[Rfam]
Nucleotides: 124
Stems, first nucleotide, its partner, number of pairs: 001124006008117011020105001022103006029096003034091006041084002045079004
Number, partner (000 for none) and nucleotide at each position: 001124a002123a003122u004121a005120g006119g007000a008117g009116a010115a011114u012113g013112g014111c015110a016109a017108a018107u019000c020105a021000a022103a023102u024101u025100u026099u027098u028000c029096c030095u031094u032000u033000u034091a035090a036089u037088u038087u039086u040000c041084a042083g043000c044000u045079u046078u047077u048076u049000c050000a051000u052000c053000g054000u055000g056000a057000a058000a059000a060000a061000a062000u063000u064000c065000g066000a067000a068000u069000c070000c071000a072000a073000c074000u075000a076048a077047a078046a079045a080000a081000a082000g083042c084041u085000g086039a087038a088037a089036a090035u091034u092000u093000u094031g095030a096029g097000g098027a099026a100025a101024a102023a103022u104000c105020u106000u107018a108017u109016u110015u111014g112013u113012c114011a115010u116009u117008c118000a119006c120005c121004u122003a123002u124001u
About this RNA
This 124-nucleotide sequence from Gossypium trilobum belongs to the Rfam family "MIR7504 microRNA precursor family". Gene Ontology terms of the family: RISC complex and miRNA-mediated post-transcriptional gene silencing. Rfam 15.1 lists 7,343 matches to the family in 61 species. The family's consensus secondary structure was predicted with RNAalifold.